RNA sequence: CUUGGGGGAGACUGAUUUGGCUGGUGUUGUACAGAGUAGCCAGCUUGUUUACAUGCUCACCCCAUG
Numbered sequence: 001c002u003u004g005g006g007g008g009a010g011a012c013u014g015a016u017u018u019g020g021c022u023g024g025u026g027u028u029g030u031a032c033a034g035a036g037u038a039g040c041c042a043g044c045u046u047g048u049u050u051a052c053a054u055g056c057u058c059a060c061c062c063c064a065u066g
Base pairs, nucleotide, nucleotide: 001066003064004063005062006061007060010057012055014049015048016047019045020044021043022042023041024040025039026032027031

This 66-nucleotide RNA from Pelusios castaneus belongs to the Rfam family "MAT2A 3'UTR stem loop F". For this family Rfam cites "New families of human regulatory RNA structures identified by comparative analysis of vertebrate genomes" (Parker et al., Genome Res, 2011). The match comes from Rfam's covariance-model search (71 bits). The family's RNA type in Rfam is cis-regulatory element. Pairs were carried over by alignment from the consensus structure, which is taken from published work.